[Rfam]
RNA sequence: GUGUCCUUACCUCAUCCUGGCUGUUCCCCUCACCAGACCUGUGGUGCUGGGGUCUGGGGGUGGACGCAGAUCAACUUACCUCUCGUGUUAGGAGGGCCGUCAAAGACAUGCGCAAGCCCUUAAAGGCAAGAGAGCACAUU
Dot-bracket structure: .(((((.(.((..............(((..(((..........)))..).)).....))).))))).............(((((...((..((((((.((((......)).))..))))))..))....)))))......
Numbered sequence: 001g002u003g004u005c006c007u008u009a010c011c012u013c014a015u016c017c018u019g020g021c022u023g024u025u026c027c028c029c030u031c032a033c034c035a036g037a038c039c040u041g042u043g044g045u046g047c048u049g050g051g052g053u054c055u056g057g058g059g060g061u062g063g064a065c066g067c068a069g070a071u072c073a074a075c076u077u078a079c080c081u082c083u084c085g086u087g088u089u090a091g092g093a094g095g096g097c098c099g100u101c102a103a104a105g106a107c108a109u110g111c112g113c114a115a116g117c118c119c120u121u122a123a124a125g126g127c128a129a130g131a132g133a134g135c136a137c138a139u140u
Stems, first nucleotide, its partner, number of pairs: 002066005008060001010059002026052002028049001031046003080134005088125002092121006099113002101110002